RNA: TPP riboswitch aptamer (THI element)
Organism: Jeotgalibacillus sp. R-1-5s-1
RNA sequence: UAUCUGCACUGGGGGUGCUUAUGUAGCUGAGAUGAGAGCAAUGGCUCCGAUCCCUUAUGACUCGAUCAGGAUAAUACCUGCGUGAGGAAGUGUAGUGACUUCUCU
Numbered sequence: 001u002a003u004c005u006g007c008a009c010u011g012g013g014g015g016u017g018c019u020u021a022u023g024u025a026g027c028u029g030a031g032a033u034g035a036g037a038g039c040a041a042u043g044g045c046u047c048c049g050a051u052c053c054c055u056u057a058u059g060a061c062u063c064g065a066u067c068a069g070g071a072u073a074a075u076a077c078c079u080g081c082g083u084g085a086g087g088a089a090g091u092g093u094a095g096u097g098a099c100u101u102c103u104c105u
Stems, first nucleotide, its partner, number of pairs: 006093005011055004016049001017027003034048001036047004061086004067080004